Rfam assigns this 62-nucleotide sequence from Homo sapiens to the family "U7 small nuclear RNA".
A reference for the family is Mowry and Steitz (1987), "Identification of the human U7 snRNP as one of several factors involved in the 3' end maturation of histone premessenger RNA's", Science.
The source organism's lineage runs through Eukaryota, Sarcopterygii, Dipnotetrapodomorpha, Primates and Homo.
It scores 39 bits against the family's covariance model.
[Rfam]
RNA sequence: UGGCCCUAUAGCUCUUUUGGAAUUUGUCUAACAGGUUUUUCAGUUUUUAGCAGAAAACCUCC
Numbered sequence: 001u002g003g004c005c006c007u008a009u010a011g012c013u014c015u016u017u018u019g020g021a022a023u024u025u026g027u028c029u030a031a032c033a034g035g036u037u038u039u040u041c042a043g044u045u046u047u048u049a050g051c052a053g054a055a056a057a058c059c060u061c062c
Stems, first nucleotide, its partner, number of pairs: 034059007044049001
Dot-bracket structure: .................................(((((((...(....)...)))))))...